[Rfam]
Nucleotides: 107
Base pairs, nucleotide, nucleotide: 011097014093015092016091017090018089019088023084024083025082026081027080028079029078030077031076032075033074
Number, partner (000 for none) and nucleotide at each position: 001000c002000u003000u004000g005000c006000a007000g008000a009000g010000g011097u012000u013000a014093u015092u016091g017090g018089c019088a020000u021000u022000c023084u024083g025082u026081c027080c028079a029078u030077c031076u032075c033074c034000a035000a036000g037000u038000c039000a040000u041000c042000c043000a044000u045000c046000u047000c048000u049000c050000g051000u052000g053000a054000a055000c056000a057000u058000g059000g060000a061000g062000a063000a064000g065000c066000u067000u068000a069000u070000a071000g072000a073000u074033g075032g076031a077030g078029g079028u080027g081026g082025g083024c084023a085000u086000c087000c088019u089018g090017c091016c092015a093014a094000c095000a096000g097011a098000u099000c100000u101000c102000u103000g104000u105000u106000g107000g